[Rfam]
RNA sequence: GUGGCCCGCAAAAGGGCAGCACUUCCCUUGCUCUGGACUGGAAAGUGCUUCCCUUUUGUGUGUCAC
Dot-bracket structure: ...((.((((((((((.((((((..((............))..)))))).)))))))))).))...
Numbered sequence: 001g002u003g004g005c006c007c008g009c010a011a012a013a014g015g016g017c018a019g020c021a022c023u024u025c026c027c028u029u030g031c032u033c034u035g036g037a038c039u040g041g042a043a044a045g046u047g048c049u050u051c052c053c054u055u056u057u058g059u060g061u062g063u064c065a066c
Stems, first nucleotide, its partner, number of pairs: 004063002007060010018049006026041002